Rfam assigns this 200-nucleotide RNA from Oryza sativa to the family "MIR1435 microRNA precursor family".

[Rfam]
RNA sequence: UGACUUUUUUCUUAGUCAAACUUCUUUAAGUUUGACCAAAUUUAUAGAAAAGUAUGUUAACAUUUUCAAUACAAAACAAAUAUAUUAUCAAAAUAUAUUCGAUGCUAAAUUUAAUGAAACUAGUUUGGUGUUGUAAAUGUUGCUGUUUUUUCUUAUAAACUUGGUCAAACCUAAAGAAGUUUGACUAAGAAAAAAGUCGA
Number, nucleotide and partner (000 for none) at each position: 001u000002g000003a000004c000005u195006u194007u193008u192009u191010u000011c189012u188013u187014a186015g185016u184017c183018a182019a181020a180021c179022u178023u177024c176025u175026u174027u000028a000029a000030g000031u169032u168033u167034g166035a165036c000037c000038a000039a000040a000041u000042u000043u000044a000045u155046a154047g153048a000049a151050a150051a149052g148053u000054a000055u145056g144057u000058u000059a141060a140061c139062a138063u137064u136065u135066u000067c133068a132069a000070u000071a000072c128073a000074a126075a125076a124077c123078a000079a000080a000081u000082a000083u000084a000085u000086u000087a000088u000089c000090a000091a000092a000093a000094u000095a000096u000097a000098u000099u000100c000101g000102a000103u000104g000105c000106u000107a000108a000109a000110u000111u000112u000113a000114a000115u000116g000117a000118a000119a000120c000121u000122a000123g077124u076125u075126u074127g000128g072129u000130g000131u000132u068133g067134u000135a065136a064137a063138u062139g061140u060141u059142g000143c000144u056145g055146u000147u000148u052149u051150u050151u049152c000153u047154u046155a045156u000157a000158a000159a000160c000161u000162u000163g000164g000165u035166c034167a033168a032169a031170c000171c000172u000173a000174a026175a025176g024177a023178a022179g021180u020181u019182u018183g017184a016185c015186u014187a013188a012189g011190a000191a009192a008193a007194a006195a005196g000197u000198c000199g000200a000

A search with the family's covariance model found it, with a score of 112 bits.